Nucleotides: 038
Stems, first nucleotide, its partner, number of pairs: 005031001013027006
Number, partner (000 for none) and nucleotide at each position: 001000g002000g003000u004000a005031c006000a007000u008000g009000u010000a011000c012000u013027c014026g015025c016024u017023g018022c019000g020000g021000u022018g023017c024016a025015g026014c027013g028000a029000u030000g031005g032000u033000a034000a035000a036000u037000g038000u

Shown here is a 38-nucleotide RNA sequence from Finegoldia magna, a member of the family "Selenocysteine insertion sequence 4". For this family Rfam cites "Molecular analysis of the grd operon coding for genes of the glycine reductase and of the thioredoxin system from Clostridium sticklandii" (Graentzdoerffer et al., Arch Microbiol, 2001). Rfam links the family to the GO term selenocysteine incorporation.